[Rfam]
Bacterial RNase P class A: a 384-nucleotide sequence from Desulfoluna spongiiphila. It is annotated as a ribozyme. The organism belongs to Desulfoluna, within Bacteria.
Nucleotides: 384
Base pairs, nucleotide, nucleotide: 001380002379003378004377005376006375007374009372010371012325013324014323015322016321017320018319020042021041023039024038025037026036027035028034047368048367049366051365052364053363054362055361056227057226058225059224063261064260065259066258068223069222070221071220072219073087074086075085076084077083088102089100090099091098092097103218104217108216109215110212111211125157126156127153128152129151131149132148133147134146135145136144137143165183166182167181168180169179170178185207186205187204188203189202190201191200192199193198231282232281233280234279241273242272243271244270245269246268253265254264255263256262289308290307291306292305293304294303295302296301
Number, partner (000 for none) and nucleotide at each position: 001380g002379g003378a004377g005376g006375g007374g008000a009372a010371c011000a012325g013324a014323u015322g016321a017320u018319c019000g020042c021041c022000g023039g024038g025037u026036u027035g028034c029000u030000u031000c032000g033000u034028g035027c036026a037025g038024c039023c040000g041021g042020g043000a044000g045000g046000a047368a048367a049366g050000u051365c052364c053363g054362a055361a056227c057226a058225c059224c060000a061000c062000a063261g064260g065259g066258c067000a068223g069222g070221g071220u072219g073087c074086u075085c076084c077083a078000u079000a080000a081000c082000g083077u084076g085075g086074a087073g088102u089100c090099g091098c092097g093000g094000u095000a096000a097092c098091g099090c100089g101000a102088a103218g104217g105000c106000a107000a108216g109215u110212g111211c112000a113000a114000c115000a116000g117000a118000g119000a120000g121000u122000a123000g124000a125157c126156c127153g128152c129151c130000a131149c132148g133147u134146a135145c136144c137143c138000g139000u140000u141000u142000c143137g144136g145135g146134u147133g148132c149131g150000g151129g152128g153127u154000a155000a156126g157125g158000g159000u160000g161000a162000a163000a164000g165183g166182g167181u168180g169179c170178g171000g172000u173000a174000a175000g176000a177000g178170c179169g180168c181167a182166c183165c184000a185207g186205u187204u188203c189202u190201u191200c192199g193198g194000g195000u196000g197000a198193u199192c200191g201190g202189a203188g204187a205186a206000g207185c208000u209000g210000g211111g212110u213000a214000a215109a216108c217104c218103c219072c220071a221070c222069c223068c224059g225058g226057u227056g228000c229000a230000a231282g232281a233280c234279c235000a236000a237000a238000u239000a240000g241273g242272g243271a244270a245269g246268u247000g248000u249000u250000u251000g252000a253265g254264g255263g256262c257000u258066g259065c260064c261063c262256g263255u264254c265253c266000g267000a268246g269245c270244u271243u272242c273241c274000g275000g276000g277000u278000a279234g280233g281232u282231c283000g284000c285000g286000u287000g288000a289308g290307g291306u292305g293304u294303c295302g296301g297000g298000c299000a300000a301296c302295c303294g304293g305292c306291a307290u308289c309000c310000u311000a312000g313000a314000u315000g316000a317000a318000u319018g320017a321016u322015c323014a324013u325012c326000g327000c328000c329000c330000c331000g332000u333000u334000u335000c336000c337000g338000g339000g340000u341000a342000a343000c344000c345000g346000g347000g348000a349000c350000g351000g352000g353000g354000a355000a356000c357000a358000a359000a360000a361055u362054u363053c364052g365051g366049c367048u368047u369000a370000c371010g372009u373000a374007c375006c376005c377004c378003u379002u380001c381000a382000a383000c384000c